[Rfam]
RNA sequence: AUACUUACCUGGACGGGAUCUAUGGGCGAUCAAGAAGGCCCAUUGCCUAGGGUGUUGGCCUCCAUUGCACUUAGGAGGAGCAAUACCCUAAGAUCUCCUCAAGUGGGAGAGUCUACGUCAUAAUUUAUUUAUGAGGGAACCUGCGUUCGCGCGGCCCCUAU
Number, nucleotide and partner (000 for none) at each position: 001a000002u000003a000004c000005u000006u000007a000008c000009c000010u000011g000012g119013a118014c117015g116016g048017g047018a000019u045020c000021u000022a000023u042024g041025g040026g039027c038028g000029a000030u000031c000032a000033a000034g000035a000036a000037g000038g027039c026040c025041c024042a023043u000044u000045g019046c000047c017048u016049a089050g088051g087052g086053u000054g000055u000056u082057g081058g000059c078060c077061u076062c075063c074064a000065u000066u000067g000068c000069a000070c000071u000072u000073a000074g063075g062076a061077g060078g059079a000080g000081c057082a056083a000084u000085a000086c052087c051088c050089u049090a000091a114092g113093a112094u110095c109096u108097c000098c106099u105100c000101a000102a000103g000104u000105g099106g098107g000108a096109g095110a094111g000112u093113c092114u091115a000116c015117g014118u013119c012120a000121u000122a000123a000124u000125u000126u000127a000128u000129u000130u000131a000132u000133g000134a000135g159136g158137g157138a000139a000140c000141c000142u153143g152144c151145g150146u000147u000148c000149g000150c145151g144152c143153g142154g000155c000156c000157c137158c136159u135160a000161u000
This 161-nucleotide RNA from Beta vulgaris belongs to the Rfam family "U1 spliceosomal RNA". On this family, see Pomeranz Krummel et al., Nature 2009: "Crystal structure of human spliceosomal U1 snRNP at 5.5 A resolution". Its Rfam clan is "U1 clan". Rfam 15.1 lists 40,184 matches to the family in 1,499 species. It scores 124 bits against the family's covariance model. The base pairs follow the family's consensus structure, which is taken from published work. It is annotated as a spliceosomal small nuclear RNA. The source organism's lineage runs through Eukaryota, Embryophyta, Euphyllophyta, eudicotyledons and Beta vulgaris.